[Rfam]
RNA sequence: UAACCCUACUUGUGAGAGUAGGCUGAACUUACAGAAGUCAGCAGACGCCAUAGUACGCAGGUUGUUGCAACGAUCUGCGGAAGGGC
Numbered sequence: 001u002a003a004c005c006c007u008a009c010u011u012g013u014g015a016g017a018g019u020a021g022g023c024u025g026a027a028c029u030u031a032c033a034g035a036a037g038u039c040a041g042c043a044g045a046c047g048c049c050a051u052a053g054u055a056c057g058c059a060g061g062u063u064g065u066u067g068c069a070a071c072g073a074u075c076u077g078c079g080g081a082a083g084g085g086c
Base pairs, nucleotide, nucleotide: 001025002024005022006021007020008019009018010017011016037046038045039044047086048085049084056079057078058077059076060075061074062073063072
Rfam assigns this 86-nucleotide RNA from Paenibacillus sp. IHBB 10380 to the family "Group II catalytic intron D1-D4-1". A reference for the family is Lehmann and Schmidt (2003), "Group II introns: structure and catalytic versatility of large natural ribozymes", Crit Rev Biochem Mol Biol. The organism belongs to Paenibacillus, within Bacteria. A search with the family's covariance model found it, with a score of 73 bits.